[Rfam]
RNA sequence: ACCGAGGAAAGCUGAAAAUCGGAUAAAAGAGUAGGCG
Numbered sequence: 001a002c003c004g005a006g007g008a009a010a011g012c013u014g015a016a017a018a019u020c021g022g023a024u025a026a027a028a029g030a031g032u033a034g035g036c037g
Base pairs, nucleotide, nucleotide: 002022003021004020005019011036012035013034

DUF805b RNA: a 37-nucleotide sequence.